This 124-nucleotide RNA from Panthera tigris belongs to the Rfam family "Small nucleolar RNA SNORA31". Its family is annotated with RNA processing and nucleolus in the Gene Ontology. About the family: ACA31 (SNORA31) belongs to the H/ACA class of snoRNAs which are thought to guide the sites of modification of uridines to pseudouridines. ACA31 is predicted to guide the pseudouridylation of U3713 in 28S rRNA and U218 in 18S rRNA. This family includes the mouse homologue snoMBI-161. The source organism's lineage runs through Eukaryota, Opisthokonta, Bilateria, Eutheria and Panthera tigris. Pairs were carried over by alignment from the consensus structure, which was predicted with RNAalifold.
[Rfam]
RNA sequence: AUGCAUCUAUUUGACAGACCUGGAGCAGUUAUUGUCUGCUGCUAAGGUUCUCAUUACAGAUGUAAGAAAAAAAUUGUCCUCACCCUUUCUGUCUAAUUGUGGCAGCCACGAUUGAAUGGGGAAU
Numbered sequence: 001a002u003g004c005a006u007c008u009a010u011u012u013g014a015c016a017g018a019c020c021u022g023g024a025g026c027a028g029u030u031a032u033u034g035u036c037u038g039c040u041g042c043u044a045a046g047g048u049u050c051u052c053a054u055u056a057c058a059g060a061u062g063u064a065a066g067a068a069a070a071a072a073a074u075u076g077u078c079c080u081c082a083c084c085c086u087u088u089c090u091g092u093c094u095a096a097u098u099g100u101g102g103c104a105g106c107c108a109c110g111a112u113u114g115a116a117u118g119g120g121g122a123a124u
Stems, first nucleotide, its partner, number of pairs: 002064007012053002017049004024040005077122005084114001087108001089105005